[Rfam]
RNA sequence: UAGGCAACUUUUUGCCGAGUGAAUCGAACAUCGAUAUCUCUCUUUUUCCCAGUUGCCUAAAUCCAUGUAAUUGGCUGCGUGAGGAAUUUUUUUGAUCUGUUAUUUAAUUCUCGAUAUAACCGAUCUUUUCCUCUUUGCUGCUACAUUU
Numbered sequence: 001u002a003g004g005c006a007a008c009u010u011u012u013u014g015c016c017g018a019g020u021g022a023a024u025c026g027a028a029c030a031u032c033g034a035u036a037u038c039u040c041u042c043u044u045u046u047u048c049c050c051a052g053u054u055g056c057c058u059a060a061a062u063c064c065a066u067g068u069a070a071u072u073g074g075c076u077g078c079g080u081g082a083g084g085a086a087u088u089u090u091u092u093u094g095a096u097c098u099g100u101u102a103u104u105u106a107a108u109u110c111u112c113g114a115u116a117u118a119a120c121c122g123a124u125c126u127u128u129u130c131c132u133c134u135u136u137g138c139u140g141c142u143a144c145a146u147u148u
Stems, first nucleotide, its partner, number of pairs: 003057007017042003021038002023035004065146005073139003081133005094125003099120005

This 148-nucleotide RNA sequence from Arabidopsis lyrata belongs to the Rfam family "Small nucleolar RNA snoR144". Rfam's curators put it in the seed alignment. The family's consensus secondary structure was predicted with mfold. The literature on the family includes a 2009 paper in Nucleic Acids Res by Chen and Wu, "Mining small RNA sequencing data: a new approach to identify small nucleolar RNAs in Arabidopsis". The organism belongs to Arabidopsis lyrata, within Eukaryota. It is annotated as an H/ACA-box small nucleolar RNA.